[Rfam]
RNA sequence: AACGAGGUACAGUUCUGUUUAUGUGUGGCAUUUUCAGUAAAGAAGUCCUGAGUAAACACGUUGACGUUGAAUACCGCUUCUCUGCCGAGCCUUAUAUUGGUGCCUCAUGCAGUAAUGUGUCAGUUUUAUCUAUGUUAUGCCUGCGGGCGAAGAAAACAAUCUAAGGAAUUUUCAAAUGGCAAAGAUUAAAGGUCAGGUUAAGUGGUUCAACGAGUCUAAAGGUUUUGGCUUCAUUACUCCGGCUGAUGGCAGCAAAGACGUGUUCGUACACUUCUCCGCUAUCCAGGGUAAUGGCUUCAAAACUCUGGCUGAAGGUCAGAACGUUGAGUUCGAAAUUCAGGACGGCCAGAAAGGUCCGGCAGCUGUUAACGUAACAGCUAUCUGAUCGAAUCCACUGAUCUGAAGUGUGAAUACGCUUCAAUCUCGCUAUAAAGCCUCGUCGAAUGCGAGGCUUUUUACU
Numbered sequence: 001a002a003c004g005a006g007g008u009a010c011a012g013u014u015c016u017g018u019u020u021a022u023g024u025g026u027g028g029c030a031u032u033u034u035c036a037g038u039a040a041a042g043a044a045g046u047c048c049u050g051a052g053u054a055a056a057c058a059c060g061u062u063g064a065c066g067u068u069g070a071a072u073a074c075c076g077c078u079u080c081u082c083u084g085c086c087g088a089g090c091c092u093u094a095u096a097u098u099g100g101u102g103c104c105u106c107a108u109g110c111a112g113u114a115a116u117g118u119g120u121c122a123g124u125u126u127u128a129u130c131u132a133u134g135u136u137a138u139g140c141c142u143g144c145g146g147g148c149g150a151a152g153a154a155a156a157c158a159a160u161c162u163a164a165g166g167a168a169u170u171u172u173c174a175a176a177u178g179g180c181a182a183a184g185a186u187u188a189a190a191g192g193u194c195a196g197g198u199u200a201a202g203u204g205g206u207u208c209a210a211c212g213a214g215u216c217u218a219a220a221g222g223u224u225u226u227g228g229c230u231u232c233a234u235u236a237c238u239c240c241g242g243c244u245g246a247u248g249g250c251a252g253c254a255a256a257g258a259c260g261u262g263u264u265c266g267u268a269c270a271c272u273u274c275u276c277c278g279c280u281a282u283c284c285a286g287g288g289u290a291a292u293g294g295c296u297u298c299a300a301a302a303c304u305c306u307g308g309c310u311g312a313a314g315g316u317c318a319g320a321a322c323g324u325u326g327a328g329u330u331c332g333a334a335a336u337u338c339a340g341g342a343c344g345g346c347c348a349g350a351a352a353g354g355u356c357c358g359g360c361a362g363c364u365g366u367u368a369a370c371g372u373a374a375c376a377g378c379u380a381u382c383u384g385a386u387c388g389a390a391u392c393c394a395c396u397g398a399u400c401u402g403a404a405g406u407g408u409g410a411a412u413a414c415g416c417u418u419c420a421a422u423c424u425c426g427c428u429a430u431a432a433a434g435c436c437u438c439g440u441c442g443a444a445u446g447c448g449a450g451g452c453u454u455u456u457u458a459c460u
Stems, first nucleotide, its partner, number of pairs: 001014003004010001022241002027238002030235001041231001044230004048222001054217001056215002059212006073206003079178001081176001083174002090166005096160001098128003139148003180192001245337003257265002270324002273321001275320002278317001279315002283308005292301001343358003359381001361379007384423003388419003429457001431455010
This 460-nucleotide RNA sequence belongs to the Rfam family "cspA thermoregulator". The literature on the family includes a 2010 paper in Mol Cell by Giuliodori et al., "The cspA mRNA is a thermosensor that modulates translation of the cold-shock protein CspA". The match comes from Rfam's covariance-model search (138 bits).